[Rfam]
RNA sequence: UCAAACUUAAUAGCAAAGCCAGAGACAGCAGGUGCCCAGAGCUUAAUUUCCUGCCGAGGUUUUCGUUUUGUAUUUUUUAAUGUCAAUGCCCUUGGUGGUACGGCAUGAAAGAUUUACAGCGUAACCCCGGUCUUCUGUCCGGGGUUUUUUGAUCUCUCU
Numbered sequence: 001u002c003a004a005a006c007u008u009a010a011u012a013g014c015a016a017a018g019c020c021a022g023a024g025a026c027a028g029c030a031g032g033u034g035c036c037c038a039g040a041g042c043u044u045a046a047u048u049u050c051c052u053g054c055c056g057a058g059g060u061u062u063u064c065g066u067u068u069u070g071u072a073u074u075u076u077u078u079a080a081u082g083u084c085a086a087u088g089c090c091c092u093u094g095g096u097g098g099u100a101c102g103g104c105a106u107g108a109a110a111g112a113u114u115u116a117c118a119g120c121g122u123a124a125c126c127c128c129g130g131u132c133u134u135c136u137g138u139c140c141g142g143g144g145u146u147u148u149u150u151g152a153u154c155u156c157u158c159u
Stems, first nucleotide, its partner, number of pairs: 028054005034042002125144006132137001
A member of the RNA family "Ribosomal protein L10 leader" from Leptolyngbya sp. ES-bin-22, 159 nucleotides long.
The match comes from Rfam's covariance-model search (64 bits).
Rfam describes the family as follows. This family is a putative r-protein leader autoregulatory structure found in B. subtilis and other low-GC Gram-positive bacteria.
It is annotated as a cis-regulatory leader.